[Rfam]
RNA sequence: CAAGCAGGUGAUGAGAACAAGACAGGGACAUCAGAACCCUUUUCCGGGCAUGAUAGACCAAGUCUAUAAUGGGAAUCUCUCUGAUGCUUU
Numbered sequence: 001c002a003a004g005c006a007g008g009u010g011a012u013g014a015g016a017a018c019a020a021g022a023c024a025g026g027g028a029c030a031u032c033a034g035a036a037c038c039c040u041u042u043u044c045c046g047g048g049c050a051u052g053a054u055a056g057a058c059c060a061a062g063u064c065u066a067u068a069a070u071g072g073g074a075a076u077c078u079c080u081c082u083g084a085u086g087c088u089u090u
Stems, first nucleotide, its partner, number of pairs: 002089005
RNA: Small nucleolar RNA R44/J54/Z268 family
Organism: Zea mays